RNA sequence: UGGGAAGAGGGCACGGUCGCAGGCGGGCUACCGCUUGAGGAAAGUCCGGGCAGCACAGGGCAGGAUGCCAGCUAACGGCUGGGCGGGGUAACCCGACGGAAUAGUGCAACAGAGAGCAGACCGCCCGCAAGGGCAAGGGUGAAACGGUGGGGUAAGAGCCCACCAGUGCCCCUGGAGACAGGGGGAGCUAGGUAAACCCCAUCCGCUGCAAGUCCGUAAGUCCGAACAGGGAGGUUUAGCCCGAACCGCUUGAACCUACGGCAGUGACGCUCGAGGUGGUUGGCGACAGCCAUCCCAGAGAGAUGACCGUGGAAACAGAACCCGGCUUACGCCUCUUCCCGCAAU
Numbered sequence: 001u002g003g004g005a006a007g008a009g010g011g012c013a014c015g016g017u018c019g020c021a022g023g024c025g026g027g028c029u030a031c032c033g034c035u036u037g038a039g040g041a042a043a044g045u046c047c048g049g050g051c052a053g054c055a056c057a058g059g060g061c062a063g064g065a066u067g068c069c070a071g072c073u074a075a076c077g078g079c080u081g082g083g084c085g086g087g088g089u090a091a092c093c094c095g096a097c098g099g100a101a102u103a104g105u106g107c108a109a110c111a112g113a114g115a116g117c118a119g120a121c122c123g124c125c126c127g128c129a130a131g132g133g134c135a136a137g138g139g140u141g142a143a144a145c146g147g148u149g150g151g152g153u154a155a156g157a158g159c160c161c162a163c164c165a166g167u168g169c170c171c172c173u174g175g176a177g178a179c180a181g182g183g184g185g186a187g188c189u190a191g192g193u194a195a196a197c198c199c200c201a202u203c204c205g206c207u208g209c210a211a212g213u214c215c216g217u218a219a220g221u222c223c224g225a226a227c228a229g230g231g232a233g234g235u236u237u238a239g240c241c242c243g244a245a246c247c248g249c250u251u252g253a254a255c256c257u258a259c260g261g262c263a264g265u266g267a268c269g270c271u272c273g274a275g276g277u278g279g280u281u282g283g284c285g286a287c288a289g290c291c292a293u294c295c296c297a298g299a300g301a302g303a304u305g306a307c308c309g310u311g312g313a314a315a316c317a318g319a320a321c322c323c324g325g326c327u328u329a330c331g332c333c334u335c336u337u338c339c340c341g342c343a344a345u
Stems, first nucleotide, its partner, number of pairs: 001341010011330001012311007020037007042328003046325005051208004058242004063204005068082005083097001084095004098199002104197002106193002121138002123134004146164006166188001167186001169184006212268003216259003220255002233247005275294008
A member of the RNA family "Bacterial RNase P class A" from Meiothermus granaticius, 345 nucleotides long.
The base pairs follow the family's consensus structure, which is taken from published work.
By type it is a ribozyme.
On this family, see Frank and Pace, Annu Rev Biochem 1998: "Ribonuclease P: unity and diversity in a tRNA processing ribozyme".